This 152-nucleotide sequence from Chrysochloris asiatica belongs to the Rfam family "Small nucleolar RNA SNORA12". It scores 148 bits against the family's covariance model. About the family: U108 belongs to the H/ACA family of snoRNAs. The sequence is predicted to guide the pseudouridylation of the U372 residue in the 28S rRNA subunit. Gene Ontology terms of the family: RNA processing and nucleolus. NCBI's taxonomy places the organism under Eukaryota, Craniata, Tetrapoda, Chrysochlorinae, Chrysochloris. The family's consensus secondary structure was predicted with RNAalifold.
Nucleotides: 152
Stems, first nucleotide, its partner, number of pairs: 005062007022050003026046006075145004080140001081090003107137002110134002
Number, partner (000 for none) and nucleotide at each position: 001000c002000a003000u004000u005062g006061u007060g008059g009058u010057g011056g012000u013000u014000u015000u016000c017000u018000u019000u020000c021000u022050g023049g024048c025000a026046c027045a028044u029043u030042u031041g032000u033000u034000a035000a036000g037000u038000u039000u040000u041031c042030a043029a044028a045027u046026g047000g048024g049023c050022c051000u052000g053000a054000c055000u056011c057010u058009a059008c060007c061006a062005c063000a064000u065000a066000u067000a068000u069000u070000a071000c072000a073000u074000a075145g076144g077143a078142g079000c080140c081090a082089g083088c084000c085000a086000a087000g088083g089082c090081u091000g092000g093000a094000u095000g096000a097000g098000a099000a100000a101000g102000a103000g104000u105000u106000c107137u108136u109000c110134c111133u112000g113000u114000g115000u116000c117000u118000a119000g120000c121000c122000u123000u124000u125000c126000c127000c128000a129000c130000a131000u132000c133111a134110g135000a136108a137107a138000u139000u140080g141000a142078c143077u144076c145075c146000c147000a148000c149000a150000c151000g152000u